[Rfam]
RNA sequence: GGCUGUUGGUUUGCCCAUUCACUUUUGGAAGCCAAUGAAUGCGGUGUCAAAAAAGGCAUAAAUUAAACUCUUUGCAGCUAUUUCCUGCCAUUGAAUUUAGUACCUUUAGUGCAAAAGCUGCCUAAGUUACAGUU
Numbered sequence: 001g002g003c004u005g006u007u008g009g010u011u012u013g014c015c016c017a018u019u020c021a022c023u024u025u026u027g028g029a030a031g032c033c034a035a036u037g038a039a040u041g042c043g044g045u046g047u048c049a050a051a052a053a054a055g056g057c058a059u060a061a062a063u064u065a066a067a068c069u070c071u072u073u074g075c076a077g078c079u080a081u082u083u084c085c086u087g088c089c090a091u092u093g094a095a096u097u098u099a100g101u102a103c104c105u106u107u108a109g110u111g112c113a114a115a116a117g118c119u120g121c122c123u124a125a126g127u128u129a130c131a132g133u134u
Stems, first nucleotide, its partner, number of pairs: 002057003006053002012046004016041006023034001070126003074121005083116001086113003089109001093104001
Small nucleolar RNA SNORA13: a 134-nucleotide sequence from Chrysochloris asiatica. By type it is an H/ACA-box small nucleolar RNA. NCBI's taxonomy places the organism under Eukaryota, Eumetazoa, Theria, Chrysochlorinae, Chrysochloris. Rfam links the family to the GO terms nucleolus and RNA processing. A search with the family's covariance model found it, with a score of 97 bits. Its Rfam clan is "SNORA13 clan". Pairs were carried over by alignment from the consensus structure, which was predicted with CMfinder. From the family's description: ACA13 is a member of the H/ACA class of snoRNA that guide the sites of modification of uridines to pseudouridines.